[Rfam]
RNA sequence: AAAGGGAAUACCGAAAACCUUUAAAAUAGAGUAGGUA
Numbered sequence: 001a002a003a004g005g006g007a008a009u010a011c012c013g014a015a016a017a018c019c020u021u022u023a024a025a026a027u028a029g030a031g032u033a034g035g036u037a
Stems, first nucleotide, its partner, number of pairs: 002021004010036003
Background: The family of this 37-nucleotide RNA sequence from Dokdonia pacifica is "DUF805b RNA". The source organism's lineage runs through Bacteria, Pseudomonadati, Bacteroidota, Flavobacteriales and Dokdonia. Its Rfam clan is "DUF805 clan". The family's consensus secondary structure is taken from published work.